[Rfam]
RNA sequence: AUUUUAUAAUGUCUUCGAUCUAGGUUACCUACGGAAUUCAUUCUAUGGUGACUUAGACGAUAGGGUAUAGAAGGAAACUUCUAUGCCUCCCGCAUUAGGAAAGGAGACACAUUAUGAACCGG
Numbered sequence: 001a002u003u004u005u006a007u008a009a010u011g012u013c014u015u016c017g018a019u020c021u022a023g024g025u026u027a028c029c030u031a032c033g034g035a036a037u038u039c040a041u042u043c044u045a046u047g048g049u050g051a052c053u054u055a056g057a058c059g060a061u062a063g064g065g066u067a068u069a070g071a072a073g074g075a076a077a078c079u080u081c082u083a084u085g086c087c088u089c090c091c092g093c094a095u096u097a098g099g100a101a102a103g104g105a106g107a108c109a110c111a112u113u114a115u116g117a118a119c120c121g122g
Stems, first nucleotide, its partner, number of pairs: 003116001006113001011108006019057011033044004063088011089099002

Rfam assigns this 122-nucleotide RNA sequence from Petrotoga mobilis to the family "Molybdenum/Tungsten riboswitch aptamer (Moco RNA motif)". The family's consensus secondary structure is taken from published work. For this family Rfam cites "in molybdenum cofactor and tungsten cofactor metabolism" (Regulski et al., Mol Microbiol, 2008). Taxonomically the source falls in Petrotoga mobilis (Bacteria, Thermotogati, Thermotogae, Petrotoga).